Rfam assigns this 148-nucleotide RNA from Oryza meridionalis to the family "MIR807 microRNA precursor family". For this family Rfam cites "Rice embryogenic calli express a unique set of microRNAs, suggesting regulatory roles of microRNAs in plant post-embryogenic development" (Luo et al., FEBS Lett, 2006). The family's consensus secondary structure was predicted with WAR. A search with the family's covariance model found it, with a score of 118 bits. Gene Ontology terms of the family: miRNA-mediated post-transcriptional gene silencing and RISC complex.
[Rfam]
RNA sequence: UGAAUGGAUUUACCCGUGAGAUGACGUGGUUGUUCCAUCUAGGAUGAGGUCAUGGCAUCCUAUUAAUUUCGUACGAUGGCUGGUAAUAGGAUGCCAUGUCCUCGUCCUAGGUAAAACAGUCACGUCAUCUCGCGGAUGAAUCCAUUCA
Numbered sequence: 001u002g003a004a005u006g007g008a009u010u011u012a013c014c015c016g017u018g019a020g021a022u023g024a025c026g027u028g029g030u031u032g033u034u035c036c037a038u039c040u041a042g043g044a045u046g047a048g049g050u051c052a053u054g055g056c057a058u059c060c061u062a063u064u065a066a067u068u069u070c071g072u073a074c075g076a077u078g079g080c081u082g083g084u085a086a087u088a089g090g091a092u093g094c095c096a097u098g099u100c101c102u103c104g105u106c107c108u109a110g111g112u113a114a115a116a117c118a119g120u121c122a123c124g125u126c127a128u129c130u131c132g133c134g135g136a137u138g139a140a141u142c143c144a145u146u147c148a
Base pairs, nucleotide, nucleotide: 001148003146004145005144007142008141009140010139011138012137014135016133017132018131019130021128022127023126024125025124027122028121029120030119031118032117033116034115037112038111040109041108043106044105049100051098055094056093057092058091059090060089061088062087063086064085065084072083